[Rfam]
RNA sequence: CACUAGUUUUGGCUGAGUUUCCAUAAAGGAAAGCGGGGGAACCAAUUUGUGCAGGUUGCACUUGGGGUGAAUCCUUUUUAGUUAAGGUAGGGUAUUACUCUUCAUCCGAAUCCGACAGCUAACCCCGUAAGCAUUAGGAGAGAGAAUUG
Numbered sequence: 001c002a003c004u005a006g007u008u009u010u011g012g013c014u015g016a017g018u019u020u021c022c023a024u025a026a027a028g029g030a031a032a033g034c035g036g037g038g039g040a041a042c043c044a045a046u047u048u049g050u051g052c053a054g055g056u057u058g059c060a061c062u063u064g065g066g067g068u069g070a071a072u073c074c075u076u077u078u079u080a081g082u083u084a085a086g087g088u089a090g091g092g093u094a095u096u097a098c099u100c101u102u103c104a105u106c107c108g109a110a111u112c113c114g115a116c117a118g119c120u121a122a123c124c125c126c127g128u129a130a131g132c133a134u135u136a137g138g139a140g141a142g143a144g145a146a147u148u149g
Stems, first nucleotide, its partner, number of pairs: 012132003018032005033128006043064002065113003073087004090107004
Description:
The family of this 149-nucleotide RNA sequence from Robertmurraya siralis is "c-di-AMP riboswitch aptamer (ydaO/yuaA leader)". Lineage of the source: Bacteria > Bacillati > Bacillota > Bacillaceae > Robertmurraya. It scores 98 bits against the family's covariance model.